[Rfam]
RNA sequence: AUGGAGAAGUAAUCGCUGCAUAUAACUUUAUAUGUAGAGGAAAGUCCAUGCUCACACAAGCUGGGAUGCUUGUAGUGUUCGUGCUUGACGAAAUCAUAAGUCAAGGUAACCAGAUAAUGGUUAACGGCAGAGAAAGCACCUACGUUCUUAUUCGAAUAUGGUGUCAGUAUCUUGAAAGUGCCACAGUGACGUAGCUAAACAGGAAACUGUUUAGGUGGAACGCGGUAAACCCCUCGAGUGAGCAACCCAAAUAUUGGUAGGGGCAUCUUCUAUUAGGGAAUUUCAGAACCGAACGAAGGACAAGCUGACUGCUUGUAGACAGAUGAUUACACCUUUGGUACGAGGCUGACCACCGCUGGCAGUACGAGAAGGACAGAACAUGGCUUAUGAAC
Numbered sequence: 001a002u003g004g005a006g007a008a009g010u011a012a013u014c015g016c017u018g019c020a021u022a023u024a025a026c027u028u029u030a031u032a033u034g035u036a037g038a039g040g041a042a043a044g045u046c047c048a049u050g051c052u053c054a055c056a057c058a059a060g061c062u063g064g065g066a067u068g069c070u071u072g073u074a075g076u077g078u079u080c081g082u083g084c085u086u087g088a089c090g091a092a093a094u095c096a097u098a099a100g101u102c103a104a105g106g107u108a109a110c111c112a113g114a115u116a117a118u119g120g121u122u123a124a125c126g127g128c129a130g131a132g133a134a135a136g137c138a139c140c141u142a143c144g145u146u147c148u149u150a151u152u153c154g155a156a157u158a159u160g161g162u163g164u165c166a167g168u169a170u171c172u173u174g175a176a177a178g179u180g181c182c183a184c185a186g187u188g189a190c191g192u193a194g195c196u197a198a199a200c201a202g203g204a205a206a207c208u209g210u211u212u213a214g215g216u217g218g219a220a221c222g223c224g225g226u227a228a229a230c231c232c233c234u235c236g237a238g239u240g241a242g243c244a245a246c247c248c249a250a251a252u253a254u255u256g257g258u259a260g261g262g263g264c265a266u267c268u269u270c271u272a273u274u275a276g277g278g279a280a281u282u283u284c285a286g287a288a289c290c291g292a293a294c295g296a297a298g299g300a301c302a303a304g305c306u307g308a309c310u311g312c313u314u315g316u317a318g319a320c321a322g323a324u325g326a327u328u329a330c331a332c333c334u335u336u337g338g339u340a341c342g343a344g345g346c347u348g349a350c351c352a353c354c355g356c357u358g359g360c361a362g363u364a365c366g367a368g369a370a371g372g373a374c375a376g377a378a379c380a381u382g383g384c385u386u387a388u389g390a391a392c
Stems, first nucleotide, its partner, number of pairs: 004392001007388001009330006016037006042386003046383005051242005056073006079237003083233001084105006106125001107123006126232002129172003137163004144157003178230002180226003195214008246262003266299005300316006334369003338365004
Dot-bracket structure: ...(..(.((((((.((((((..........))))))....[[[.[[[[[(((((((((((......)))))).....(((.(((((((..........))))))(((((((.....)))))).)((.(((.....((((...(((........)))..))))......))).....(((((............((((((((....)))))))).........)))..))))).))))))))...(((...........)))...(((((........................)))))((((((.....))))))........))))))...(((.((((....................)))).))).........]]]]]]]].)...)
A member of the RNA family "Bacterial RNase P class B" from Gracilibacillus ureilyticus, 392 nucleotides long.
Taxonomically the source falls in Gracilibacillus (Bacteria, Bacillati, Bacillota, Bacilli).
It scores 294 bits against the family's covariance model.
The base pairs follow the family's consensus structure, which is taken from published work.
For this family Rfam cites "Ribonuclease P: unity and diversity in a tRNA processing ribozyme" (Frank and Pace, Annu Rev Biochem, 1998).
Rfam classes the family as a ribozyme.
Ribonuclease P (RNase P) is a ubiquitous endoribonuclease, found in archaea, bacteria and eukarya as well as chloroplasts and mitochondria. Its best characterised activity is the generation of mature 5'-ends of tRNAs by cleaving the 5'-leader elements of precursor-tRNAs. Cellular RNase Ps are ribonucleoproteins.